RNA sequence: GCAGUUGGUCGGUUUGUCGCUGGUACUUAUAUGUACAAGAGGAAAGUCCGGGCAACACAGAGCAUCCUACUUCCUAACAGAAAGCUGCCUGCAAAGGUAGAGUAAUGCAGAAGAAAAUAACCGCCAGUCCACACCGGAAAGGCAAGGGUGAGAAGGUAGGGUAAGAGCCUACCAGACGUAUAGCGAUAUGCGUGCUGUGCAUCUUAGGAGUUGUAAGGUCAUGUAAACCGGCAUUAAGGAGGGUUGCUCGCCCCACGUCGGAGGGUAGACCGCUAGAACUUACUGGUGACAGUGAGUGUAGAUAAAUGACAGACACUUUGCAUUUCGAUGCAGAGAACGGAACCCGGCUUAUAGACCGACUGCUUUU
Numbered sequence: 001g002c003a004g005u006u007g008g009u010c011g012g013u014u015u016g017u018c019g020c021u022g023g024u025a026c027u028u029a030u031a032u033g034u035a036c037a038a039g040a041g042g043a044a045a046g047u048c049c050g051g052g053c054a055a056c057a058c059a060g061a062g063c064a065u066c067c068u069a070c071u072u073c074c075u076a077a078c079a080g081a082a083a084g085c086u087g088c089c090u091g092c093a094a095a096g097g098u099a100g101a102g103u104a105a106u107g108c109a110g111a112a113g114a115a116a117a118u119a120a121c122c123g124c125c126a127g128u129c130c131a132c133a134c135c136g137g138a139a140a141g142g143c144a145a146g147g148g149u150g151a152g153a154a155g156g157u158a159g160g161g162u163a164a165g166a167g168c169c170u171a172c173c174a175g176a177c178g179u180a181u182a183g184c185g186a187u188a189u190g191c192g193u194g195c196u197g198u199g200c201a202u203c204u205u206a207g208g209a210g211u212u213g214u215a216a217g218g219u220c221a222u223g224u225a226a227a228c229c230g231g232c233a234u235u236a237a238g239g240a241g242g243g244u245u246g247c248u249c250g251c252c253c254c255a256c257g258u259c260g261g262a263g264g265g266u267a268g269a270c271c272g273c274u275a276g277a278a279c280u281u282a283c284u285g286g287u288g289a290c291a292g293u294g295a296g297u298g299u300a301g302a303u304a305a306a307u308g309a310c311a312g313a314c315a316c317u318u319u320g321c322a323u324u325u326c327g328a329u330g331c332a333g334a335g336a337a338c339g340g341a342a343c344c345c346g347g348c349u350u351a352u353a354g355a356c357c358g359a360c361u362g363c364u365u366u367u
Stems, first nucleotide, its partner, number of pairs: 001363010011352001012314007020039002023036004044350003048347005053213004060249004065209005070084003074080001085100001087098004101204002105202005121147002123143003128138003155173006175195001176193007217271004228261005241253004278297008